[Rfam]
RNA: Selenocysteine transfer RNA
RNA sequence: GGGAGCGGAUGCGCUCCGGUGGGUUCCACGGACUUCAAAUCCGAUGGUCCCGGCCCUGCGGUCGGGACGGUGGGUUCGACUCCCUCUCGCUCCC
Numbered sequence: 001g002g003g004a005g006c007g008g009a010u011g012c013g014c015u016c017c018g019g020u021g022g023g024u025u026c027c028a029c030g031g032a033c034u035u036c037a038a039a040u041c042c043g044a045u046g047g048u049c050c051c052g053g054c055c056c057u058g059c060g061g062u063c064g065g066g067a068c069g070g071u072g073g074g075u076u077c078g079a080c081u082c083c084c085u086c087u088c089g090c091u092c093c094c
Stems, first nucleotide, its partner, number of pairs: 001094007008086001011026001013024004029043004047068007072084003